The record is a 71-nucleotide RNA from Heliornis fulica, which matches "mir-1 microRNA precursor family" in Rfam. For this family Rfam cites "An extensive class of small RNAs in Caenorhabditis elegans" (Lee and Ambros, Science, 2001). This family represents the microRNA (miRNA) mir-1 family. miRNAs are transcribed as ~70nt precursors (modelled here) and subsequently processed by the Dicer enzyme to give a ~22nt product. The match comes from Rfam's covariance-model search (51 bits).
[Rfam]
Nucleotides: 071
Stems, first nucleotide, its partner, number of pairs: 007065019027045008
Number, partner (000 for none) and nucleotide at each position: 001000a002000c003000u004000c005000a006000u007065u008064a009063u010062u011061u012060a013059u014058a015057c016056u017055u018054c019053u020052u021051u022050c023049c024048c025047u026000u027045c028044c029043a030042a031041a032040c033039a034038c035000u036000g037000u038034g039033u040032g041031u042030u043029u044028g045027g046000a047025a048024g049023g050022g051021a052020a053019a054018g055017a056016a057015g058014u059013a060012u061011a062010a063009a064008u065007a066000a067000u068000g069000a070000g071000u